[Rfam]
RNA sequence: GGGGAUGAUCGGUUUCGACAUCGCUUGUGACUCUGCGAGAAGCGGGCCGAGGAUGCAGGGUUAUCUCGUAAACGCUCCCUGCAAAACCAUAAGUGCCGAAACCAAGCGCACUGACUUCGCUCUCGCUGCUUAAGCGAGCCCGAUAGUCCGUCAGACCGUGUGUGAUCCCGCCACGGACCCUGGCGUCAUCUAGGGAUCUUGCUGAGUGACGGCGUCUGGACGUCACUCGGGACUCUUUCCAGGCUGGGCUUGUCGACUUAGGUGUCUGUGACAAAGGUCGGAGCCGAGCAGAACGUCUGCACAGACUGCGCCCGGAGAAUGCGCCGUAUUUCAGCGAUGGACGGGGGUUCGAUUCCCCCCAUCUCCACCA
Numbered sequence: 001g002g003g004g005a006u007g008a009u010c011g012g013u014u015u016c017g018a019c020a021u022c023g024c025u026u027g028u029g030a031c032u033c034u035g036c037g038a039g040a041a042g043c044g045g046g047c048c049g050a051g052g053a054u055g056c057a058g059g060g061u062u063a064u065c066u067c068g069u070a071a072a073c074g075c076u077c078c079c080u081g082c083a084a085a086a087c088c089a090u091a092a093g094u095g096c097c098g099a100a101a102c103c104a105a106g107c108g109c110a111c112u113g114a115c116u117u118c119g120c121u122c123u124c125g126c127u128g129c130u131u132a133a134g135c136g137a138g139c140c141c142g143a144u145a146g147u148c149c150g151u152c153a154g155a156c157c158g159u160g161u162g163u164g165a166u167c168c169c170g171c172c173a174c175g176g177a178c179c180c181u182g183g184c185g186u187c188a189u190c191u192a193g194g195g196a197u198c199u200u201g202c203u204g205a206g207u208g209a210c211g212g213c214g215u216c217u218g219g220a221c222g223u224c225a226c227u228c229g230g231g232a233c234u235c236u237u238u239c240c241a242g243g244c245u246g247g248g249c250u251u252g253u254c255g256a257c258u259u260a261g262g263u264g265u266c267u268g269u270g271a272c273a274a275a276g277g278u279c280g281g282a283g284c285c286g287a288g289c290a291g292a293a294c295g296u297c298u299g300c301a302c303a304g305a306c307u308g309c310g311c312c313c314g315g316a317g318a319a320u321g322c323g324c325c326g327u328a329u330u331u332c333a334g335c336g337a338u339g340g341a342c343g344g345g346g347g348u349u350c351g352a353u354u355c356c357c358c359c360c361a362u363c364u365c366c367a368c369c370a
Base pairs, nucleotide, nucleotide: 001366002365003364004363005362006361007360019339020338021337022336023335024334025333027331032328034326035325040320043314044313045312046311047310048068049067050066051065052064054083055082056081057080058079059078060077123143124142125141128139129138149185150184151183152182153181154180156176157175158174159173162172166196167195168194169193202230203229204228205227206226207225208224209223210222214245216243217242219240247285248284249283250282251281254280255279256278261272264306265305266304267303268300269299270298343359344358345357346356347355